This 227-nucleotide sequence from Paraeggerthella hongkongensis belongs to the Rfam family "raiA RNA".
RNA sequence: UUCUUUCGAGUCUGUAGUUGCGGGUGAAAACCUUAGUCCACGGCAGAUGCGGUCGAAAGGACCCACGUAAGCCGCGUGCACAGCGCGCGACGAUCAUGGCGUAUCCUAGAGGUAAGACGCACCGCCCGUCUAUACGCGGCAUACCGUCGCGGCGGGCGAGAGGGCAAUGGCGCAAGCUCGGUUCCAGUGCGCGAGUGUGGGGGCAAAGACUAGGUCAGUCGGAAGAA
Numbered sequence: 001u002u003c004u005u006u007c008g009a010g011u012c013u014g015u016a017g018u019u020g021c022g023g024g025u026g027a028a029a030a031c032c033u034u035a036g037u038c039c040a041c042g043g044c045a046g047a048u049g050c051g052g053u054c055g056a057a058a059g060g061a062c063c064c065a066c067g068u069a070a071g072c073c074g075c076g077u078g079c080a081c082a083g084c085g086c087g088c089g090a091c092g093a094u095c096a097u098g099g100c101g102u103a104u105c106c107u108a109g110a111g112g113u114a115a116g117a118c119g120c121a122c123c124g125c126c127c128g129u130c131u132a133u134a135c136g137c138g139g140c141a142u143a144c145c146g147u148c149g150c151g152g153c154g155g156g157c158g159a160g161a162g163g164g165c166a167a168u169g170g171c172g173c174a175a176g177c178u179c180g181g182u183u184c185c186a187g188u189g190c191g192c193g194a195g196u197g198u199g200g201g202g203g204c205a206a207a208g209a210c211u212a213g214g215u216c217a218g219u220c221g222g223a224a225g226a227a
Stems, first nucleotide, its partner, number of pairs: 001227009012218003015212005040198003043053001046105006062099002067094001072089001097205001118191005123158008162184004169178003